[Rfam]
Nucleotides: 068
Base pairs, nucleotide, nucleotide: 003045004044005043006042007041008040021033022032023031024030
Number, partner (000 for none) and nucleotide at each position: 001000c002000g003045u004044u005043c006042c007041g008040a009000g010000g011000a012000g013000c014000g015000c016000u017000g018000c019000g020000a021033c022032g023031a024030a025000u026000g027000c028000a029000c030024u031023u032022c033021g034000c035000c036000a037000g038000g039000c040008u041007c042006g043005g044004a045003g046000a047000u048000c049000c050000c051000c052000a053000a054000c055000c056000g057000c058000g059000c060000u061000c062000a063000c064000g065000u066000u067000a068000c